[Rfam]
RNA sequence: GCUGAGCAUGUAGCGAUUGCUUGUAACCCGAGCGGGGGCAAUAAGGUAGUGUGGAUGUCAAUUGUGGUGCAUGUGCCUAGGUCUAGUGCUACAAACUGUGGACCACCCAUUCCAAGUUGUGUAGUGGGUUUCGGGUGCCUUGGCGAAAGCCUUUGCAUCCCAACACCUAAAGUGGCAGACAUUGCGUGAGGCUGGCUUCACAGAGCAGCGAGUACCGCACGCCACCAGCGGUGGAAGGAUAAUGAGCCGCUAUGCUAUAGGCCAAUUGAGGCACAUGUGCCCUCUCUGGUAGACUACUAUCGUU
Number, nucleotide and partner (000 for none) at each position: 001g039002c038003u037004g022005a021006g020007c019008a018009u016010g000011u000012a000013g000014c000015g000016a009017u000018u008019g007020c006021u005022u004023g000024u000025a000026a000027c036028c035029c034030g000031a000032g000033c000034g029035g028036g027037g003038g002039c001040a000041a000042u000043a303044a000045g301046g300047u299048a298049g297050u296051g295052u000053g294054g000055a000056u291057g290058u000059c288060a287061a000062u000063u000064g282065u000066g280067g000068u000069g278070c277071a276072u275073g274074u273075g272076c271077c270078u269079a000080g263081g262082u261083c260084u259085a258086g000087u000088g255089c254090u000091a000092c000093a251094a000095a000096c000097u000098g250099u249100g248101g247102a000103c000104c244105a243106c000107c238108c237109a000110u236111u235112c234113c233114a232115a000116g229117u228118u227119g226120u000121g225122u224123a000124g222125u221126g166127g000128g164129u163130u162131u000132c000133g160134g159135g158136u157137g156138c155139c000140u000141u000142g151143g150144c149145g000146a000147a000148a000149g144150c143151c142152u000153u000154u000155g138156c137157a136158u135159c134160c133161c000162a130163a129164c128165a000166c126167c172168u000169a000170a000171a000172g167173u000174g000175g218176c217177a000178g215179a000180c000181a000182u000183u212184g000185c210186g209187u208188g000189a000190g000191g000192c203193u202194g201195g000196c000197u000198u000199c000200a000201c194202a193203g192204a000205g000206c000207a000208g187209c186210g185211a000212g183213u000214a000215c178216c000217g176218c175219a000220c000221g125222c124223c000224a122225c121226c119227a118228g117229c116230g000231g000232u114233g113234g112235a111236a110237g108238g107239a000240u000241a000242a000243u105244g104245a000246g000247c101248c100249g099250c098251u093252a000253u000254g089255c088256u000257a000258u085259a084260g083261g082262c081263c080264a000265a000266u000267u000268g000269a078270g077271g076272c075273a074274c073275a072276u071277g070278u069279g000280c066281c000282c064283u000284c000285u000286c000287u060288g059289g000290u057291a056292g000293a000294c053295u051296a050297c049298u048299a047300u046301c045302g000303u043304u000
RNA: Plant signal recognition particle RNA